[Rfam]
RNA: MIR6145 microRNA precursor family
RNA sequence: GCAAAAGUUAUUGUUAUAUGUUGCACUGGCCAAAAUGGAGAAUUCCUGGCCAGUGCACAUAUAACAGUAAUUUUAGCU
Numbered sequence: 001g002c003a004a005a006a007g008u009u010a011u012u013g014u015u016a017u018a019u020g021u022u023g024c025a026c027u028g029g030c031c032a033a034a035a036u037g038g039a040g041a042a043u044u045c046c047u048g049g050c051c052a053g054u055g056c057a058c059a060u061a062u063a064a065c066a067g068u069a070a071u072u073u074u075a076g077c078u
Base pairs, nucleotide, nucleotide: 001077002076004074005073006072007071008070010068011067012066013065014064015063016062017061018060019059022057023056024055025054026053027052028051029050030049031048